The record is a 408-nucleotide RNA from Thioclava indica, which matches "Bacterial RNase P class A" in Rfam.
RNA sequence: GCGGAUGGCCGGAUGACCGCGAGUGCCCAUAGCUCCGUUUUGCGGACAGCUGGGUGCCCGAGGAAAGUCCGGACUCCAUGAAGUGACGGUGCCGGGUAACGCCCGGGCGGGGCAACCCGACGGAAAGCGCCACAGAAAACAAACCGCCGUGCCUUGGUGCGGUAAGGGUGAAACGGUGGGGUAAGAGCCCACCGCGGGGCUGGUAACAGACCUGGCAUGGCAAGCCCCACCGGGAGCAACGCCGAAUAGGGAUCGUGCGCCGCCCCGGCAAUGGGUGACGGCAGGGGAACUUCGCCCCGAGCGAUCCGGGUUGGCGGCUGGACCCUGCGAGCAAUCGUAGGGCGAGAGGAAUGGUCAUCCAGAGGGGCAACCCUUGGACAGAAUCCGGCUUACAGGCCAUCCGCGCGU
Numbered sequence: 001g002c003g004g005a006u007g008g009c010c011g012g013a014u015g016a017c018c019g020c021g022a023g024u025g026c027c028c029a030u031a032g033c034u035c036c037g038u039u040u041u042g043c044g045g046a047c048a049g050c051u052g053g054g055u056g057c058c059c060g061a062g063g064a065a066a067g068u069c070c071g072g073a074c075u076c077c078a079u080g081a082a083g084u085g086a087c088g089g090u091g092c093c094g095g096g097u098a099a100c101g102c103c104c105g106g107g108c109g110g111g112g113c114a115a116c117c118c119g120a121c122g123g124a125a126a127g128c129g130c131c132a133c134a135g136a137a138a139a140c141a142a143a144c145c146g147c148c149g150u151g152c153c154u155u156g157g158u159g160c161g162g163u164a165a166g167g168g169u170g171a172a173a174c175g176g177u178g179g180g181g182u183a184a185g186a187g188c189c190c191a192c193c194g195c196g197g198g199g200c201u202g203g204u205a206a207c208a209g210a211c212c213u214g215g216c217a218u219g220g221c222a223a224g225c226c227c228c229a230c231c232g233g234g235a236g237c238a239a240c241g242c243c244g245a246a247u248a249g250g251g252a253u254c255g256u257g258c259g260c261c262g263c264c265c266c267g268g269c270a271a272u273g274g275g276u277g278a279c280g281g282c283a284g285g286g287g288a289a290c291u292u293c294g295c296c297c298c299g300a301g302c303g304a305u306c307c308g309g310g311u312u313g314g315c316g317g318c319u320g321g322a323c324c325c326u327g328c329g330a331g332c333a334a335u336c337g338u339a340g341g342g343c344g345a346g347a348g349g350a351a352u353g354g355u356c357a358u359c360c361a362g363a364g365g366g367g368c369a370a371c372c373c374u375u376g377g378a379c380a381g382a383a384u385c386c387g388g389c390u391u392a393c394a395g396g397c398c399a400u401c402c403g404c405g406c407g408u
Base pairs, nucleotide, nucleotide: 001404002403003402004401005400006399007398008397009396010395011393012359013358014357015356016355017354018353020060021059023057024056025055026054027053028052065391066390067389069388070387071386072385073384074236075235076234077233083292085290087232088231089230090229091228092106093105094104095103096102107121108119109118110117111116122227123226127225128224129221130220131219144167145166146163147162148161149160150159151158152157175193176192177191178190179189180188194216195214196213197212198211200209201208202207240316241315242314243313250307251306252305253304254303255302284298285297286296287295323342324341325340326339327338328337329336330335
Annotation
Rfam classes the family as a ribozyme.